[Rfam]
RNA sequence: UUAAGUUAACCACAUAAAAUAUGUCAUCUCUUUUAAUUAUACACAUUCGCCUCAAUAAGCUGUAGACUCCAAGCAUUUUCUACUUGAAGUUGAUGUGUAUAAUAAAAGGAGAUAAUUUAUUUUAUGUGAUUAACUUAACU
Number, nucleotide and partner (000 for none) at each position: 001u138002u137003a136004a135005g134006u133007u132008a131009a130010c000011c128012a127013c126014a125015u124016a123017a122018a121019a120020u119021a118022u000023g116024u115025c000026a000027u000028c111029u110030c109031u108032u107033u106034u105035a000036a103037u102038u101039a100040u099041a098042c097043a096044c095045a094046u093047u092048c000049g090050c089051c000052u087053c000054a000055a000056u000057a000058a000059g000060c000061u000062g000063u000064a000065g000066a000067c000068u000069c000070c000071a000072a000073g000074c000075a000076u000077u000078u000079u000080c000081u000082a000083c000084u000085u000086g000087a052088a000089g050090u049091u000092g047093a046094u045095g044096u043097g042098u041099a040100u039101a038102a037103u036104a000105a034106a033107a032108g031109g030110a029111g028112a000113u000114a000115a024116u023117u000118u021119a020120u019121u018122u017123u016124a015125u014126g013127u012128g011129a000130u009131u008132a007133a006134c005135u004136u003137a002138a001139c000140u000
This 140-nucleotide RNA sequence from Anisodus acutangulus belongs to the Rfam family "MIR7993 microRNA precursor family".
Rfam links the family to the GO terms RISC complex and miRNA-mediated post-transcriptional gene silencing.
The organism belongs to Anisodus, within Eukaryota.
Rfam 15.1 lists 59 matches to the family in 6 species.
The match comes from Rfam's covariance-model search (101 bits).